Background
Rfam assigns this 75-nucleotide RNA sequence from Dactylosporangium vinaceum to the family "ASpks TB sRNA". The base pairs follow the family's consensus structure, which is taken from published work. NCBI's taxonomy places the organism under Bacteria, Bacillati, Actinomycetota, Micromonosporaceae, Dactylosporangium. A search with the family's covariance model found it, with a score of 73 bits.

[Rfam]
RNA sequence: CUUGAGCGAGCCGAGCCACAGGGGCCGGCCGGGCUCGCGCUGCUGGCCGUAGGUGGCCAGGAUCGCCUGGGCCUC
Numbered sequence: 001c002u003u004g005a006g007c008g009a010g011c012c013g014a015g016c017c018a019c020a021g022g023g024g025c026c027g028g029c030c031g032g033g034c035u036c037g038c039g040c041u042g043c044u045g046g047c048c049g050u051a052g053g054u055g056g057c058c059a060g061g062a063u064c065g066c067c068u069g070g071g072c073c074u075c
Stems, first nucleotide, its partner, number of pairs: 015025003034071003038065002043060003047056003